[Rfam]
RNA sequence: CCUUCGCCGGUGAGGGCUGCGCAAGCAGGAAGACCGGACGCGGAUUAGACGGCGAGUGCCGCGCCUCCUUGAAAACCCCGUCAGCC
Numbered sequence: 001c002c003u004u005c006g007c008c009g010g011u012g013a014g015g016g017c018u019g020c021g022c023a024a025g026c027a028g029g030a031a032g033a034c035c036g037g038a039c040g041c042g043g044a045u046u047a048g049a050c051g052g053c054g055a056g057u058g059c060c061g062c063g064c065c066u067c068c069u070u071g072a073a074a075a076c077c078c079c080g081u082c083a084g085c086c
Base pairs, nucleotide, nucleotide: 001015002014003013004012007037008036009035010034011033018027019026020025039063040062041061042060043059048082049081050080051079052078
The record is an 86-nucleotide RNA from Bordetella hinzii, which matches "Proteo-phage-1 RNA" in Rfam. The match comes from Rfam's covariance-model search (70 bits). The family's RNA type in Rfam is small RNA.